[Rfam]
RNA sequence: UUCACAAUUGAAUGGAUCAUUCGUAUAACCUCGCGACUACAGGGUGGGGGUUUCUACGGGAAGCCUUAACUUCCUUGCUACGAAUAACGGAUUGCGUCUC
Dot-bracket structure: ..................(((((((...((((((.........))))))........((((((......))))))...)))))))...............